Rfam assigns this 100-nucleotide RNA sequence from Bacillus pseudomycoides to the family "azaaromatic riboswitch aptamer (yjdF RNA)".
The organism belongs to Bacillus, within Bacteria.

RNA sequence: CUAUAGAAAUACAAAAACACAGUUCUGGUUGGUAGUCCAGACGCAUACUAGUAUGUCAGUAACCUUCCCCUCCGGGAUGUCCAGUAUUUCUAAUUUUUUU
Numbered sequence: 001c002u003a004u005a006g007a008a009a010u011a012c013a014a015a016a017a018c019a020c021a022g023u024u025c026u027g028g029u030u031g032g033u034a035g036u037c038c039a040g041a042c043g044c045a046u047a048c049u050a051g052u053a054u055g056u057c058a059g060u061a062a063c064c065u066u067c068c069c070c071u072c073c074g075g076g077a078u079g080u081c082c083a084g085u086a087u088u089u090c091u092a093a094u095u096u097u098u099u100u
Stems, first nucleotide, its partner, number of pairs: 004092008022042002025040004043056005066077004